[Rfam]
RNA sequence: CCGCGGGACACCCUUCCCCACCGAAGGGCUUUCUAUCUGGAAGGAUAGACUAU
Numbered sequence: 001c002c003g004c005g006g007g008a009c010a011c012c013c014u015u016c017c018c019c020a021c022c023g024a025a026g027g028g029c030u031u032u033c034u035a036u037c038u039g040g041a042a043g044g045a046u047a048g049a050c051u052a053u
Base pairs, nucleotide, nucleotide: 011028012027013026014025015024016023033048034047035046036045037044038043
Shown here is a 53-nucleotide RNA from Rugositalea oryzae, a member of the family "serC leader". Rfam classes the family as a cis-regulatory leader. Rfam describes the family as follows. This family is a putative regulatory RNA structure that is found upstream of the serC-serA operon in some alpha-proteobacteria. The final stem of the structure overlaps the ribosome binding site of the serC reading frame. The source organism's lineage runs through Bacteria, Pseudomonadati, Pseudomonadota, Hyphomicrobiales and Rugositalea. The match comes from Rfam's covariance-model search (66 bits).